[Rfam]
RNA sequence: GGGUGCUUGAAGCUGUCUGCUUUGGGCAUUGUUUGAAUCAGUGCUGUAAGUGCCUUGGUAAAAAACAGUUGUUGUCAUAAAGCAGAUAGGAAAAAGCCCCGUACUGAAGUUAAUCAAUACGAGGCUCCCUAAUGCCUAGCAACAUUACGGUAGCUUCUUACCUGCUGAAAGGCAAGACAUGGAGGCCAAAUAUG
Numbered sequence: 001g002g003g004u005g006c007u008u009g010a011a012g013c014u015g016u017c018u019g020c021u022u023u024g025g026g027c028a029u030u031g032u033u034u035g036a037a038u039c040a041g042u043g044c045u046g047u048a049a050g051u052g053c054c055u056u057g058g059u060a061a062a063a064a065a066c067a068g069u070u071g072u073u074g075u076c077a078u079a080a081a082g083c084a085g086a087u088a089g090g091a092a093a094a095a096g097c098c099c100c101g102u103a104c105u106g107a108a109g110u111u112a113a114u115c116a117a118u119a120c121g122a123g124g125c126u127c128c129c130u131a132a133u134g135c136c137u138a139g140c141a142a143c144a145u146u147a148c149g150g151u152a153g154c155u156u157c158u159u160a161c162c163u164g165c166u167g168a169a170a171g172g173c174a175a176g177a178c179a180u181g182g183a184g185g186c187c188a189a190a191u192a193u194g
Base pairs, nucleotide, nucleotide: 001100002099003098005097006096007095008094013089014088015087016086017085018084019083020082021081022080023079026076101120102119103118106114121157122156123155124154125153127150128149130147131146132145133144134143161185162184163183165181
This 194-nucleotide sequence from Yersinia intermedia belongs to the Rfam family "sok antitoxin (CssrC)". Rfam 15.1 lists 305 matches to the family in 167 species. By type it is an antitoxin RNA. About the family: Also identified in Shigella as CssrC. The literature on the family includes a 2007 paper in Mol Microbiol by Kawano et al., "An antisense RNA controls synthesis of an SOS-induced toxin evolved from an antitoxin". The sequence is in the family's curated seed alignment. The base pairs follow the family's consensus structure, which is taken from published work.